Shown here is an 83-nucleotide RNA from Homo sapiens, a member of the family "mir-1299 microRNA precursor family". The match comes from Rfam's covariance-model search (90 bits).
RNA sequence: CCUUGUAGCAGUGUUCCGGAAUCCUAUGUGAGGGACAAACAUUCAGACCACAGCAGCAGUGUUCCGGAAUCCUGUAUGACGGA
Numbered sequence: 001c002c003u004u005g006u007a008g009c010a011g012u013g014u015u016c017c018g019g020a021a022u023c024c025u026a027u028g029u030g031a032g033g034g035a036c037a038a039a040c041a042u043u044c045a046g047a048c049c050a051c052a053g054c055a056g057c058a059g060u061g062u063u064c065c066g067g068a069a070u071c072c073u074g075u076a077u078g079a080c081g082g083a
Stems, first nucleotide, its partner, number of pairs: 001081001003079005009074003013070010024059002027056001028054002033049002
NCBI's taxonomy places the organism under Eukaryota, Craniata, Teleostomi, Primates, Homo.